[Rfam]
RNA sequence: UCUGGAGUAGGCUUUAAAGCGUUAAGCACUGGUGGAACGGAAUGUGAACACCGGAUGAAGAAAGAAAAUUAAGAAUGAUUGUUACUUAAUUUUAAUUUCGCGAUUUUAUUGCCGCAUUCGCCACG
Numbered sequence: 001u002c003u004g005g006a007g008u009a010g011g012c013u014u015u016a017a018a019g020c021g022u023u024a025a026g027c028a029c030u031g032g033u034g035g036a037a038c039g040g041a042a043u044g045u046g047a048a049c050a051c052c053g054g055a056u057g058a059a060g061a062a063a064g065a066a067a068a069u070u071a072a073g074a075a076u077g078a079u080u081g082u083u084a085c086u087u088a089a090u091u092u093u094a095a096u097u098u099c100g101c102g103a104u105u106u107u108a109u110u111g112c113c114g115c116a117u118u119c120g121c122c123a124c125g
Stems, first nucleotide, its partner, number of pairs: 001125001003123003010113003015108005020102003026056001029054006040119005060099004
This 125-nucleotide RNA from Bombilactobacillus mellis belongs to the Rfam family "THF (Tetrahydrofolate) riboswitch aptamer". About the family: Tetrahydrofolate (THF) riboswitch was first reported for Ames et al. as an RNA motif in 5' untranslated (5'-UTR)regions of folate transport and biosynthesis genes in Firmicutes genomes.